[Rfam]
This 70-nucleotide sequence from Strongylocentrotus purpuratus belongs to the Rfam family "Mammalian CPEB3 ribozyme". The family's consensus secondary structure is taken from published work. It scores 44 bits against the family's covariance model.
RNA sequence: AUUGUAUGAUGGCCAAUGAAGGAGCGUUCACGUCAUGGUCCCUGUCAGAUGAACAUCUGCGAAUCCUUGA
Numbered sequence: 001a002u003u004g005u006a007u008g009a010u011g012g013c014c015a016a017u018g019a020a021g022g023a024g025c026g027u028u029c030a031c032g033u034c035a036u037g038g039u040c041c042c043u044g045u046c047a048g049a050u051g052a053a054c055a056u057c058u059g060c061g062a063a064u065c066c067u068u069g070a
Stems, first nucleotide, its partner, number of pairs: 011040004017070001019068005024036001026034001046059005